RNA sequence: AAAUAUCUUCAGGGCAGGGUUAAAUUCCCGACCGGCGGUAAAGUCCGCGAGCCGAAAGGUUGACUUGGUGAAAUUCCAGGACCGACAGUAUAGUCUGGAUGGUAGGAGAGAUUA
Numbered sequence: 001a002a003a004u005a006u007c008u009u010c011a012g013g014g015c016a017g018g019g020u021u022a023a024a025u026u027c028c029c030g031a032c033c034g035g036c037g038g039u040a041a042a043g044u045c046c047g048c049g050a051g052c053c054g055a056a057a058g059g060u061u062g063a064c065u066u067g068g069u070g071a072a073a074u075u076c077c078a079g080g081a082c083c084g085a086c087a088g089u090a091u092a093g094u095c096u097g098g099a100u101g102g103u104a105g106g107a108g109a110g111a112u113u114a
Stems, first nucleotide, its partner, number of pairs: 003112002006109005017029003031094002033084002035048004043082002051060003064080005086097003